[Rfam]
RNA sequence: UCACCGAGUAGAGGUUGCGAAGGUCAUUACACCUGCAGAGCAUAGCAUUGCACUGAAGCAGGCCUAGGGACAUUCGCCGAAACGACAAGGGGAUGCUACUCCUUUUUCGUUGGGCUGCAAAUGAACAAUUUGCAGACUGUCUUGGCAAUUGCCAAGGUGCGCUAUGUUUUGU
Numbered sequence: 001u002c003a004c005c006g007a008g009u010a011g012a013g014g015u016u017g018c019g020a021a022g023g024u025c026a027u028u029a030c031a032c033c034u035g036c037a038g039a040g041c042a043u044a045g046c047a048u049u050g051c052a053c054u055g056a057a058g059c060a061g062g063c064c065u066a067g068g069g070a071c072a073u074u075c076g077c078c079g080a081a082a083c084g085a086c087a088a089g090g091g092g093a094u095g096c097u098a099c100u101c102c103u104u105u106u107u108c109g110u111u112g113g114g115c116u117g118c119a120a121a122u123g124a125a126c127a128a129u130u131u132g133c134a135g136a137c138u139g140u141c142u143u144g145g146c147a148a149u150u151g152c153c154a155a156g157g158u159g160c161g162c163u164a165u166g167u168u169u170u171g172u
Base pairs, nucleotide, nucleotide: 006167008165009164010163011162017077018076019075020074021073023071024070025069032062033061034060035059036058081111082110083109084108085107087105088104089103090102091101092100112138113137115135116134117133118132119131120130121129122128140157141156142155143154144153145152146151